Rfam assigns this 91-nucleotide RNA sequence from Streptomyces humidus to the family "Streptomyces RNA 3202".
The pairing is the family consensus, mapped onto this sequence.
The source organism's lineage runs through Bacteria, Bacillati, Actinomycetes, Streptomycetaceae and Streptomyces.
A reference for the family is Vockenhuber et al. (2011), "Deep sequencing-based identification of small non-coding RNAs in Streptomyces coelicolor", RNA Biol.
About the family: Identified by deep sequencing of transcriptome at the end of exponential growth phase.
RNA sequence: CCAAGUCCCGCCGCACAUCCCCCGGCGCCGGGACUCUCCGAGAGCCGGGCUUCGGCGCCUCUCCCCCCAGGCGCCGGAGCCCGGCUCCUUU
Numbered sequence: 001c002c003a004a005g006u007c008c009c010g011c012c013g014c015a016c017a018u019c020c021c022c023c024g025g026c027g028c029c030g031g032g033a034c035u036c037u038c039c040g041a042g043a044g045c046c047g048g049g050c051u052u053c054g055g056c057g058c059c060u061c062u063c064c065c066c067c068c069a070g071g072c073g074c075c076g077g078a079g080c081c082c083g084g085c086u087c088c089u090u091u
Stems, first nucleotide, its partner, number of pairs: 005034006012027003042087010053076008